[Rfam]
RNA sequence: CUUGUGGACUGUUACAUCAACUGUAGUAGCGAGCUUUUGGCGAGGCAGGACAGGAUAAAGCAAGAA
Dot-bracket structure: (((((...(((((.......(((.....((.........))....))))))))......)))))..

A member of the RNA family "RAGATH-18 RNA", 66 nucleotides long. From the family's description: Actinobacteria, Firmicutes, Fusobacteria, Thermotogae (1 example). Pairs were carried over by alignment from the consensus structure, which is taken from published work.